[Rfam]
Nucleotides: 148
Base pairs, nucleotide, nucleotide: 003021004020005019032084033083035081036080037079038078101109102108103107118138119137120136121135122134123133124132
Number, partner (000 for none) and nucleotide at each position: 001000u002000u003021u004020u005019a006000a007000u008000u009000a010000a011000a012000u013000u014000a015000u016000c017000a018000u019005u020004a021003a022000u023000a024000u025000a026000a027000u028000a029000a030000a031000u032084u033083a034000c035081g036080u037079u038078u039000c040000a041000c042000u043000c044000a045000a046000u047000a048000c049000g050000g051000a052000u053000c054000u055000c056000a057000a058000a059000g060000c061000c062000a063000u064000g065000c066000u067000u068000a069000u070000u071000u072000a073000a074000g075000c076000u077000a078038a079037a080036g081035c082000g083033u084032g085000g086000c087000u088000g089000u090000c091000u092000c093000a094000a095000u096000c097000g098000a099000a100000u101109u102108g103107c104000u105000g106000u107103g108102u109101g110000u111000a112000g113000u114000c115000u116000u117000u118138g119137c120136c121135u122134g123133u124132c125000a126000g127000c128000c129000c130000a131000u132124g133123a134122u135121a136120g137119g138118c139000u140000u141000u142000u143000u144000u145000u146000u147000u148000a
Notes
The family of this 148-nucleotide RNA sequence is "RprA RNA". Translational regulation of the stationary phase sigma factor RpoS is mediated by the formation of a double-stranded RNA stem-loop structure in the upstream region of the rpoS messenger RNA, occluding the translation initiation site. A reference for the family is Majdalani et al. (2001), "Regulation of RpoS by a novel small RNA: the characterization of RprA", Mol Microbiol. A search with the family's covariance model found it, with a score of 71 bits. Rfam classes the family as a small RNA.